[Rfam]
RNA: mir-1302 microRNA precursor family
Organism: Trichechus manatus
RNA sequence: AUUUUAGUAUAAGUAUGUCCCAUUUAGUGUUUGAUGCUUGGGACAUACUUAUACUAAAA
Numbered sequence: 001a002u003u004u005u006a007g008u009a010u011a012a013g014u015a016u017g018u019c020c021c022a023u024u025u026a027g028u029g030u031u032u033g034a035u036g037c038u039u040g041g042g043a044c045a046u047a048c049u050u051a052u053a054c055u056a057a058a059a
Base pairs, nucleotide, nucleotide: 006055007054008053009052010051011050012049014047015046016045018043019042020041021040022038
Dot-bracket structure: .....(((((((.(((.(((((...............).)))).))).)))))))....